[Rfam]
RNA sequence: UGGUGGGGAUGACUACUAUCGUUUCUCGAUUCUGAUUUAAUCUAUUUUUUCUUUUGCAAACCUUCUUGAUGAUGGUUAUGCGUGUCUGAACCAU
Numbered sequence: 001u002g003g004u005g006g007g008g009a010u011g012a013c014u015a016c017u018a019u020c021g022u023u024u025c026u027c028g029a030u031u032c033u034g035a036u037u038u039a040a041u042c043u044a045u046u047u048u049u050u051c052u053u054u055u056g057c058a059a060a061c062c063u064u065c066u067u068g069a070u071g072a073u074g075g076u077u078a079u080g081c082g083u084g085u086c087u088g089a090a091c092c093a094u
Stems, first nucleotide, its partner, number of pairs: 001093004
Shown here is a 94-nucleotide sequence from Vanilla planifolia, a member of the family "small nucleolar RNA snoR126". NCBI's taxonomy places the organism under Eukaryota, Magnoliopsida, Mesangiospermae, Petrosaviidae, Vanilla. Rfam 15.1 lists 423 matches to the family in 200 species.